[Rfam]
RNA sequence: GCGGAGGGCUGGAUGGCUGCUUGGGCAGGGGGAACCCGACCCGAGAGGAAAGUCCGGACUCCAAGAAGCAACGGUGCCGGGUAACGCCCGGGCGGGGCAACCCGACGGAAAGCGCCACAGAAAACAGACCGCCCCGGCAGGUCCGGGGUAAGGGUGAAACGGUGGGGUAAGAGCCCACCGCGCCUCUGGCAACAGCGGCGGCACGGCAAGCCCCACCGGGAGCAAUGCCAAAUAGGAUCCUCGCGCGGGCCUUGCCCGCGAGCCCGCUCUGGUCGGGGGAUCGGGUUGGCAGCUUGAGGCGCAUGGCAACAUGCGUCCCAGAUGAAUGGUCAUCCAGGGGGCCUUGUGUCUCCAGACAAAAUCCGGCUUAUAGGCCCUCCGCGCAA
Numbered sequence: 001g002c003g004g005a006g007g008g009c010u011g012g013a014u015g016g017c018u019g020c021u022u023g024g025g026c027a028g029g030g031g032g033a034a035c036c037c038g039a040c041c042c043g044a045g046a047g048g049a050a051a052g053u054c055c056g057g058a059c060u061c062c063a064a065g066a067a068g069c070a071a072c073g074g075u076g077c078c079g080g081g082u083a084a085c086g087c088c089c090g091g092g093c094g095g096g097g098c099a100a101c102c103c104g105a106c107g108g109a110a111a112g113c114g115c116c117a118c119a120g121a122a123a124a125c126a127g128a129c130c131g132c133c134c135c136g137g138c139a140g141g142u143c144c145g146g147g148g149u150a151a152g153g154g155u156g157a158a159a160c161g162g163u164g165g166g167g168u169a170a171g172a173g174c175c176c177a178c179c180g181c182g183c184c185u186c187u188g189g190c191a192a193c194a195g196c197g198g199c200g201g202c203a204c205g206g207c208a209a210g211c212c213c214c215a216c217c218g219g220g221a222g223c224a225a226u227g228c229c230a231a232a233u234a235g236g237a238u239c240c241u242c243g244c245g246c247g248g249g250c251c252u253u254g255c256c257c258g259c260g261a262g263c264c265c266g267c268u269c270u271g272g273u274c275g276g277g278g279g280a281u282c283g284g285g286u287u288g289g290c291a292g293c294u295u296g297a298g299g300c301g302c303a304u305g306g307c308a309a310c311a312u313g314c315g316u317c318c319c320a321g322a323u324g325a326a327u328g329g330u331c332a333u334c335c336a337g338g339g340g341g342c343c344u345u346g347u348g349u350c351u352c353c354a355g356a357c358a359a360a361a362u363c364c365g366g367c368u369u370a371u372a373g374g375c376c377c378u379c380c381g382c383g384c385a386a
Stems, first nucleotide, its partner, number of pairs: 001382010011371001012334007020045006028037001050369003054366005059222004067270002072218005077091005092106001093104004107213002112211002114207003129153002131149007161179006180202001181200004186195003226291004236282006262274001264272002298317008
The record is a 386-nucleotide RNA sequence from Pontibaca salina, which matches "Bacterial RNase P class A" in Rfam.
The base pairs follow the family's consensus structure, which is taken from published work.
It is annotated as a ribozyme.
Rfam describes the family as follows. Ribonuclease P (RNase P) is a ubiquitous endoribonuclease, found in archaea, bacteria and eukarya as well as chloroplasts and mitochondria.